[Rfam]
RNA sequence: AAGUUUCGCAGUGGCCAUCCUCCUCCCAAAGGCCAUUGCGGAUCGUCCGCGACAUCCUCCUCCCAAAGUCGCAGGGCACCCAAACGACGCCCGCCGGUCCUCCCCCGGCGGGCGUUGUCA
Numbered sequence: 001a002a003g004u005u006u007c008g009c010a011g012u013g014g015c016c017a018u019c020c021u022c023c024u025c026c027c028a029a030a031g032g033c034c035a036u037u038g039c040g041g042a043u044c045g046u047c048c049g050c051g052a053c054a055u056c057c058u059c060c061u062c063c064c065a066a067a068g069u070c071g072c073a074g075g076g077c078a079c080c081c082a083a084a085c086g087a088c089g090c091c092c093g094c095c096g097g098u099c100c101u102c103c104c105c106c107g108g109c110g111g112g113c114g115u116u117g118u119c120a
Stems, first nucleotide, its partner, number of pairs: 007040003011036006045077004049072005087115011
RNA: Alphaproteobacterial ar14